[Rfam]
RNA sequence: AUCUUUGUACAGGGGGCCAAUGACGCAGCUCAUGAGGUUCUAAACGAGACGUGUCAAUUGCUGGUUGAAAACUAAUUCCUAAUUUACUUCAUUAAGAAAAUACAAUUUUGAACCCUAGACUUUUUAAAAUUGUAAAAUGACCCUGUUUUUUACA
Numbered sequence: 001a002u003c004u005u006u007g008u009a010c011a012g013g014g015g016g017c018c019a020a021u022g023a024c025g026c027a028g029c030u031c032a033u034g035a036g037g038u039u040c041u042a043a044a045c046g047a048g049a050c051g052u053g054u055c056a057a058u059u060g061c062u063g064g065u066u067g068a069a070a071a072c073u074a075a076u077u078c079c080u081a082a083u084u085u086a087c088u089u090c091a092u093u094a095a096g097a098a099a100a101u102a103c104a105a106u107u108u109u110g111a112a113c114c115c116u117a118g119a120c121u122u123u124u125u126a127a128a129a130u131u132g133u134a135a136a137a138u139g140a141c142c143c144u145g146u147u148u149u150u151u152a153c154a
Stems, first nucleotide, its partner, number of pairs: 022055005028050001030048001036045001038043001088118002093112001096109004131154007
Overview:
The record is a 154-nucleotide RNA from Acer saccharum, which matches "U4 spliceosomal RNA" in Rfam. By type it is a spliceosomal small nuclear RNA. U4 small nuclear RNA (U4 snRNA) is a component of the major U2-dependent spliceosome. The match comes from Rfam's covariance-model search (59 bits). The organism belongs to Acer, within Eukaryota.